Shown here is a 102-nucleotide sequence from Bacillus yapensis, a member of the family "Purine riboswitch aptamer". The match comes from Rfam's covariance-model search (85 bits). Rfam describes the family as follows. Riboswitches are metabolite binding domains within certain messenger RNAs that serve as precision sensors for their corresponding targets.
RNA sequence: UUAAAUAUCAUCGUAUUACGUCGUAUAACGUUGGGAAUAGGGCCCAAAAGUUUCUACCAGGCUACCGUAAAUAGCUUGACUACGAAGUAAGUGAUAAACGGA
Numbered sequence: 001u002u003a004a005a006u007a008u009c010a011u012c013g014u015a016u017u018a019c020g021u022c023g024u025a026u027a028a029c030g031u032u033g034g035g036a037a038u039a040g041g042g043c044c045c046a047a048a049a050g051u052u053u054c055u056a057c058c059a060g061g062c063u064a065c066c067g068u069a070a071a072u073a074g075c076u077u078g079a080c081u082a083c084g085a086a087g088u089a090a091g092u093g094a095u096a097a098a099c100g101g102a
Base pairs, nucleotide, nucleotide: 018088019087021085022084023083024082025081031047032046033045034044035043058078059077060076061075062074063073064072